[Rfam]
RNA: Ribosomal protein L10 leader
Organism: Carboxydocella thermautotrophica
RNA sequence: UGAUAUAGGUGAACCAAGCUGUAGACAGUCGGUGCCUGCUGGCUUAAAGGAGAAAUCCGCCUACCGAGGCUUUGGAAGUCAACUCUGUUGGCUAAGUAUGUCCAUCAGAGGGUCUCCUGGCUUGUCUACGGAGACCCUUUUUUGUUUGACUU
Numbered sequence: 001u002g003a004u005a006u007a008g009g010u011g012a013a014c015c016a017a018g019c020u021g022u023a024g025a026c027a028g029u030c031g032g033u034g035c036c037u038g039c040u041g042g043c044u045u046a047a048a049g050g051a052g053a054a055a056u057c058c059g060c061c062u063a064c065c066g067a068g069g070c071u072u073u074g075g076a077a078g079u080c081a082a083c084u085c086u087g088u089u090g091g092c093u094a095a096g097u098a099u100g101u102c103c104a105u106c107a108g109a110g111g112g113u114c115u116c117c118u119g120g121c122u123u124g125u126c127u128a129c130g131g132a133g134a135c136c137c138u139u140u141u142u143u144g145u146u147u148g149a150c151u152u
Base pairs, nucleotide, nucleotide: 028064029063031061032060033059034043035042036041110137111136112135113134114133115132116131117130